Small nucleolar RNA snoR111: a 123-nucleotide RNA sequence from Lathyrus oleraceus. The family has 6 seed sequences and 533 matches in Rfam 15.1. It scores 86 bits against the family's covariance model. The base pairs follow the family's consensus structure, which was predicted with WAR. The organism belongs to Lathyrus, within Eukaryota. On this family, see Marker et al., Curr Biol 2002: "Experimental RNomics: identification of 140 candidates for small non-messenger RNAs in the plant Arabidopsis thaliana".
[Rfam]
RNA sequence: ACAAAUGAUGAAGAGAUUGAUAAGGUUUCUCUGGUAUCGUUUUAACAUUGAGGUAUAACAAUCGCCGAGUCAUCGUUUCGUCCGUCAUUUUUCAUUGGCGAGUCGAUUGUUUCUCGUCUACAC
Numbered sequence: 001a002c003a004a005a006u007g008a009u010g011a012a013g014a015g016a017u018u019g020a021u022a023a024g025g026u027u028u029c030u031c032u033g034g035u036a037u038c039g040u041u042u043u044a045a046c047a048u049u050g051a052g053g054u055a056u057a058a059c060a061a062u063c064g065c066c067g068a069g070u071c072a073u074c075g076u077u078u079c080g081u082c083c084g085u086c087a088u089u090u091u092u093c094a095u096u097g098g099c100g101a102g103u104c105g106a107u108u109g110u111u112u113c114u115c116g117u118c119u120a121c122a123c
Base pairs, nucleotide, nucleotide: 006039007038008037009036010035013031014030015029016028064118066116067115068114069113072107073106074105075104081102083100084099085098086097087096089094